[Rfam]
RNA sequence: CGCCACGUUCGAUCGGGAUACUCAUCAAUAAAAAAAUCGAAACCGAGAAGACUUCUUUUGCCAAUGGCGGGCCAUAUAAAACCUCAGUGGACUAAGCUGCAAAGCCGGUGGAUUACAAAGGCGGAGAGCUCUCAAAUCUUGUAUACUCGGAGUUUCAUCACAUCACUGGGCGUCCCUUUUU
Dot-bracket structure: ...................................................((.(.((((((..((.....((((......((.....)).....(((....)))..))))....))..))))))))).....................................................

Bacteroidales-1 6S-Bacteroidales RNA suggested: a 181-nucleotide RNA sequence.
The base pairs follow the family's consensus structure, which is taken from published work.
It is one of the family's seed sequences.
Rfam's curators write: Bacteroidales-1 was first reported in a comparative genomics-based approach of genome and metagenome sequences from Weinberg et al. 2010 In a high-resolution transcriptome map study of Bacteroides thetaiotaomicron, Ryan et al. 2020 report this sRNA as 6S RNA homologue of Bacteroides, in the study they obtain evidence of small product RNAs (pRNAs) related to 6S function.